Transposase-2 RNA: a 67-nucleotide RNA sequence from Dactylosporangium vinaceum. The match comes from Rfam's covariance-model search (60 bits).

[Rfam]
RNA sequence: GAAGCGUCAACCCGGCACGACGUCAGUCGAUCAGACCGGGACCGUCCCGCUGCAAGGCAGGACUAUC
Numbered sequence: 001g002a003a004g005c006g007u008c009a010a011c012c013c014g015g016c017a018c019g020a021c022g023u024c025a026g027u028c029g030a031u032c033a034g035a036c037c038g039g040g041a042c043c044g045u046c047c048c049g050c051u052g053c054a055a056g057g058c059a060g061g062a063c064u065a066u067c
Stems, first nucleotide, its partner, number of pairs: 011040005018029004044063004049058003
NCBI's taxonomy places the organism under Bacteria, Actinomycetota, Actinomycetes, Micromonosporaceae, Dactylosporangium.